The record is an 89-nucleotide RNA sequence from Anaerotalea alkaliphila, which matches "TPP riboswitch aptamer (THI element)" in Rfam. It scores 75 bits against the family's covariance model. Pairs were carried over by alignment from the consensus structure, which is taken from published work. NCBI's taxonomy places the organism under Bacteria, Bacillati, Bacillota, Eubacteriales, Anaerotalea.

RNA sequence: CAUUUUCGCUAGGGGAGCCACAAGGCUGAGAACAACCCUUUGAACCUGAUCCGGGUCAUGCCGGCGUAGGGAAGCGGUCUACUCUUGCC
Numbered sequence: 001c002a003u004u005u006u007c008g009c010u011a012g013g014g015g016a017g018c019c020a021c022a023a024g025g026c027u028g029a030g031a032a033c034a035a036c037c038c039u040u041u042g043a044a045c046c047u048g049a050u051c052c053g054g055g056u057c058a059u060g061c062c063g064g065c066g067u068a069g070g071g072a073a074g075c076g077g078u079c080u081a082c083u084c085u086u087g088c089c
Stems, first nucleotide, its partner, number of pairs: 006077005011039004017026003045070004051064004